[Rfam]
Notes: A member of the RNA family "Plastid-rps18 3UTR RNA" from Corchorus capsularis, 56 nucleotides long. The literature on the family includes a 2023 paper in Plant Commun by Richter et al., "Retrograde signaling in plants: A critical review focusing on the GUN pathway and beyond".

RNA sequence: GCCAAGUAUUUACGAUUAAGAAGCAACUGUUUCUUGUACAGAUUGUGUAUAAAUCU
Numbered sequence: 001g002c003c004a005a006g007u008a009u010u011u012a013c014g015a016u017u018a019a020g021a022a023g024c025a026a027c028u029g030u031u032u033c034u035u036g037u038a039c040a041g042a043u044u045g046u047g048u049a050u051a052a053a054u055c056u
Stems, first nucleotide, its partner, number of pairs: 017036008
Taxonomically the source falls in Corchorus (Eukaryota, Streptophyta, Magnoliopsida, Mesangiospermae). It scores 71 bits against the family's covariance model. Rfam's curators write: Plastid rps18 is a non-coding RNA (ncRNA) present in plastids. It was identified as a short stem-loop motif in the 3 prime untranslate region (3UTR) of rps18 gene. Rfam classes the family as a cis-regulatory element.